The family of this 204-nucleotide RNA from Nocardia puris is "Actinobacteria sRNA Ms_IGR-5".
It scores 123 bits against the family's covariance model.
It is annotated as a small RNA.

[Rfam]
RNA sequence: ACACAAGGAAGGAGGUGGUCGGAAAUAUGAAUUCCAGGACACGUGAGGUGGCUGCCCGCUAGGCACCACCGCUGUAGGCGUAUCCGCCCGAGCCGAAGUGCUGAGCGAAUACCAGGCAGCCACCCGGCCCCCGAGCCCCCGGUCCGUCCGACCGGGACCCGUGCAGGCACCGCCCGCACCGGUACGGCUCGGGGGCCGUUCCUG
Numbered sequence: 001a002c003a004c005a006a007g008g009a010a011g012g013a014g015g016u017g018g019u020c021g022g023a024a025a026u027a028u029g030a031a032u033u034c035c036a037g038g039a040c041a042c043g044u045g046a047g048g049u050g051g052c053u054g055c056c057c058g059c060u061a062g063g064c065a066c067c068a069c070c071g072c073u074g075u076a077g078g079c080g081u082a083u084c085c086g087c088c089c090g091a092g093c094c095g096a097a098g099u100g101c102u103g104a105g106c107g108a109a110u111a112c113c114a115g116g117c118a119g120c121c122a123c124c125c126g127g128c129c130c131c132c133g134a135g136c137c138c139c140c141g142g143u144c145c146g147u148c149c150g151a152c153c154g155g156g157a158c159c160c161g162u163g164c165a166g167g168c169a170c171c172g173c174c175c176g177c178a179c180c181g182g183u184a185c186g187g188c189u190c191g192g193g194g195g196c197c198g199u200u201c202c203u204g
Stems, first nucleotide, its partner, number of pairs: 014056006057107004062102002065099002070095002125198013138156006
Dot-bracket structure: .............((((((...............................))))))((((.((.((...((......................))..)).)).)))).................(((((((((((((((((((.......)))))).............................)))))))))))))......